[Rfam]
RNA sequence: AUCGUUCAUCUGUUUAGACAGAUCGGAAGUAGGAUAAUACCGAAGGAACGCGGA
Numbered sequence: 001a002u003c004g005u006u007c008a009u010c011u012g013u014u015u016a017g018a019c020a021g022a023u024c025g026g027a028a029g030u031a032g033g034a035u036a037a038u039a040c041c042g043a044a045g046g047a048a049c050g051c052g053g054a
Stems, first nucleotide, its partner, number of pairs: 003050005008023005026051001032041002
Record summary:
The record is a 54-nucleotide RNA sequence, which matches "Glutamine riboswitch aptamer (glnA leader)" in Rfam. For this family Rfam cites "Structural and Dynamic Basis for Low-Affinity, High-Selectivity Binding of L-Glutamine by the Glutamine Riboswitch" (Ren et al., Cell Rep, 2015). The base pairs follow the family's consensus structure, which is taken from published work.